[Rfam]
Nucleotides: 129
Base pairs, nucleotide, nucleotide: 002061003060004058005057006056007055008054009053017045018044019043021041022040023039024038025037026036068122069121070120071119079113080112081110082109083108084107085106086105087104092101093100
Number, partner (000 for none) and nucleotide at each position: 001000a002061c003060u004058g005057g006056a007055g008054g009053a010000c011000u012000a013000a014000g015000a016000a017045g018044g019043c020000g021041g022040a023039g024038u025037c026036u027000g028000a029000u030000g031000a032000a033000g034000c035000g036026a037025g038024a039023c040022u041021c042000u043019g044018c045017u046000g047000a048000u049000a050000c051000a052000a053009u054008c055007c056006u057005c058004c059000u060003a061002g062000a063000a064000a065000a066000a067000a068122g069121g070120g071119u072000u073000g074000g075000a076000g077000a078000g079113a080112g081110c082109a083108g084107c085106c086105c087104u088000u089000a090000c091000u092101g093100g094000a095000g096000a097000a098000g099000g100093u101092u102000c103000c104087a105086g106085g107084g108083c109082u110081g111000a112080c113079u114000g115000u116000g117000c118000u119071a120070c121069c122068c123000a124000a125000c126000a127000u128000u129000c
Small Cajal body specific RNA 4: a 129-nucleotide sequence from Phyllostomus discolor. By type it is a small Cajal body RNA. Gene Ontology terms of the family: Cajal body, nucleolus and RNA processing. On this family, see Darzacq et al., EMBO J 2002: "Cajal body-specific small nuclear RNAs: a novel class of 2'-O-methylation and pseudouridylation guide RNAs".